[Rfam]
RNA sequence: AGACUCCCAGCUCUGCCAGUUACACUAGGCUUCACUGAUGUUGCUUUUGUAACAGGGAGGGAGAGAAAGGAUCUCCCCAGGACCUCGGAUUGGUCUAACUGUGGCCUCUCUUUCCAGGCUCUGAUGGGU
Numbered sequence: 001a002g003a004c005u006c007c008c009a010g011c012u013c014u015g016c017c018a019g020u021u022a023c024a025c026u027a028g029g030c031u032u033c034a035c036u037g038a039u040g041u042u043g044c045u046u047u048u049g050u051a052a053c054a055g056g057g058a059g060g061g062a063g064a065g066a067a068a069g070g071a072u073c074u075c076c077c078c079a080g081g082a083c084c085u086c087g088g089a090u091u092g093g094u095c096u097a098a099c100u101g102u103g104g105c106c107u108c109u110c111u112u113u114c115c116a117g118g119c120u121c122u123g124a125u126g127g128g129u
Stems, first nucleotide, its partner, number of pairs: 004063005011057005018045003022041003073128003079122002087111003092106004

Record summary:
This 129-nucleotide sequence from Aotus nancymaae belongs to the Rfam family "Small nucleolar RNA SNORA64/SNORA10 family". The literature on the family includes a 1999 paper in EMBO J by Narayanan et al., "Nucleolar localization signals of box H/ACA small nucleolar RNAs". The family's RNA type in Rfam is H/ACA-box small nucleolar RNA. The source organism's lineage runs through Eukaryota, Metazoa, Mammalia, Euarchontoglires and Aotus. Rfam's curators write: This family belongs to the H/ACA class of small nucleolar RNAs (snoRNAs) which act as guides in the the modification of uridines to pseudouridines. This family includes the human snoRNAs U64 and ACA10 and mouse MBI-29. The match comes from Rfam's covariance-model search (66 bits).